[Rfam]
RNA sequence: UGUUUGGAGAGUUUGAUCCUGGCUCAGGACGAACGCUGGCGGCGUGCUUAACACAUGCAAGUCGAACGGAAAGGUCUCUUCGGAGAUACUCGAGUGGCGAACGGGUGAGUAACACGUGGGUGAUCUGCCCUGCACUUCGGGAUAAGCCUGGGAAACUGGGUCUAAUACCGGAUAGGACCACGGGAUGCAUGUCUUGUGGUGGAAAGCGCUUUAGCGGUGUGGGAUGAGCCCGCGGCCUAUCAGCUUGUUGGUGGGGUGACGGCCUACCAAGGCGACGACGGGUAGCCGGCCUGAGAGGGUGUCCGGCCACACUGGGACUGAGAUACGGCCCAGACUCCUACGGGAGGCAGCAGUGGGGAAUAUUGCACAAUGGGCGCAAGCCUGAUGCAGCGACGCCGCGUGGGGGAUGACGGCCUUCGGGUUGUAAACCUCUUUCACCAUCGACGAAGGUCCGGGUUCUCUCGGAUUGACGGUAGGUGGAGAAGAAGCACCGGCCAACUACGUGCCAGCAGCCGCGGUAAUACGUAGGGUGCGAGCGUUGUCCGGAAUUACUG
Numbered sequence: 001u002g003u004u005u006g007g008a009g010a011g012u013u014u015g016a017u018c019c020u021g022g023c024u025c026a027g028g029a030c031g032a033a034c035g036c037u038g039g040c041g042g043c044g045u046g047c048u049u050a051a052c053a054c055a056u057g058c059a060a061g062u063c064g065a066a067c068g069g070a071a072a073g074g075u076c077u078c079u080u081c082g083g084a085g086a087u088a089c090u091c092g093a094g095u096g097g098c099g100a101a102c103g104g105g106u107g108a109g110u111a112a113c114a115c116g117u118g119g120g121u122g123a124u125c126u127g128c129c130c131u132g133c134a135c136u137u138c139g140g141g142a143u144a145a146g147c148c149u150g151g152g153a154a155a156c157u158g159g160g161u162c163u164a165a166u167a168c169c170g171g172a173u174a175g176g177a178c179c180a181c182g183g184g185a186u187g188c189a190u191g192u193c194u195u196g197u198g199g200u201g202g203a204a205a206g207c208g209c210u211u212u213a214g215c216g217g218u219g220u221g222g223g224a225u226g227a228g229c230c231c232g233c234g235g236c237c238u239a240u241c242a243g244c245u246u247g248u249u250g251g252u253g254g255g256g257u258g259a260c261g262g263c264c265u266a267c268c269a270a271g272g273c274g275a276c277g278a279c280g281g282g283u284a285g286c287c288g289g290c291c292u293g294a295g296a297g298g299g300u301g302u303c304c305g306g307c308c309a310c311a312c313u314g315g316g317a318c319u320g321a322g323a324u325a326c327g328g329c330c331c332a333g334a335c336u337c338c339u340a341c342g343g344g345a346g347g348c349a350g351c352a353g354u355g356g357g358g359a360a361u362a363u364u365g366c367a368c369a370a371u372g373g374g375c376g377c378a379a380g381c382c383u384g385a386u387g388c389a390g391c392g393a394c395g396c397c398g399c400g401u402g403g404g405g406g407a408u409g410a411c412g413g414c415c416u417u418c419g420g421g422u423u424g425u426a427a428a429c430c431u432c433u434u435u436c437a438c439c440a441u442c443g444a445c446g447a448a449g450g451u452c453c454g455g456g457u458u459c460u461c462u463c464g465g466a467u468u469g470a471c472g473g474u475a476g477g478u479g480g481a482g483a484a485g486a487a488g489c490a491c492c493g494g495c496c497a498a499c500u501a502c503g504u505g506c507c508a509g510c511a512g513c514c515g516c517g518g519u520a521a522u523a524c525g526u527a528g529g530g531u532g533c534g535a536g537c538g539u540u541g542u543c544c545g546g547a548a549u550u551a552c553u554g
Stems, first nucleotide, its partner, number of pairs: 009025005027544004032540006039399006045392002047357001052355003056352003061098003066095002069091002074087005105310003115234007124227002129223007137171004146161006177200010206215002236282003243273003248270008285307004289300004312333005335346004363389001365388003371384005402432004412423004436485001438480005446471001452465003488533005499528005509516002

Overview
The record is a 554-nucleotide part of an RNA from Mycobacterium tuberculosis, which matches "Bacterial small subunit ribosomal RNA" in Rfam. Rfam's curators put it in the seed alignment. Taxonomically the source falls in Mycobacterium tuberculosis variant bovis BCG (Bacteria, Bacillati, Mycobacteriaceae, Mycobacterium). Pairs were carried over by alignment from the consensus structure, which is taken from published work.